[Rfam]
RNA: Repression of heat shock gene expression (ROSE) element
RNA sequence: CAGAUCGCUGGAAGGGGUCUGCAACCGGAAAUUCCGGUUAAAUCAUCAACUUGUACCCAUGUUGCUCAAUGGAGGACGUGGCUAUGAGAA
Numbered sequence: 001c002a003g004a005u006c007g008c009u010g011g012a013a014g015g016g017g018u019c020u021g022c023a024a025c026c027g028g029a030a031a032u033u034c035c036g037g038u039u040a041a042a043u044c045a046u047c048a049a050c051u052u053g054u055a056c057c058c059a060u061g062u063u064g065c066u067c068a069a070u071g072g073a074g075g076a077c078g079u080g081g082c083u084a085u086g087a088g089a090a
Base pairs, nucleotide, nucleotide: 001021002020003019004018005017006016008015009014050088051087052086053085054084055083057081058080059079060078061077062076063075065074066073067072